Group II catalytic intron D1-D4-3: a 173-nucleotide RNA from Pandoraea thiooxydans.
From the family's description: Group II introns are found in rRNA, tRNA and mRNA of organelles in fungi, plants and protists, and also in mRNA in bacteria.
The base pairs follow the family's consensus structure.
The organism belongs to Pandoraea, within Bacteria.
[Rfam]
RNA sequence: CUCCGGGCGACUGGAGGUCUGAAGGAAGCCGGAUGGCAAAGCGCUGGCCUGACGAACAGGAAGCGGAUAUGAGGCGUGGCGGCUGGGUAAGGAGGCCGUAAUCUCCGAAGCCCGAAACUUGCACCGACGCUGGUCACGUAGAUCCGACAGGCAUAAGCGUGAAAGUGUGUGCG
Numbered sequence: 001c002u003c004c005g006g007g008c009g010a011c012u013g014g015a016g017g018u019c020u021g022a023a024g025g026a027a028g029c030c031g032g033a034u035g036g037c038a039a040a041g042c043g044c045u046g047g048c049c050u051g052a053c054g055a056a057c058a059g060g061a062a063g064c065g066g067a068u069a070u071g072a073g074g075c076g077u078g079g080c081g082g083c084u085g086g087g088u089a090a091g092g093a094g095g096c097c098g099u100a101a102u103c104u105c106c107g108a109a110g111c112c113c114g115a116a117a118c119u120u121g122c123a124c125c126g127a128c129g130c131u132g133g134u135c136a137c138g139u140a141g142a143u144c145c146g147a148c149a150g151g152c153a154u155a156a157g158c159g160u161g162a163a164a165g166u167g168u169g170u171g172c173g
Stems, first nucleotide, its partner, number of pairs: 001016006030173002036166002041160005047152005064146005074139003078135003082131001084129001085113004091106004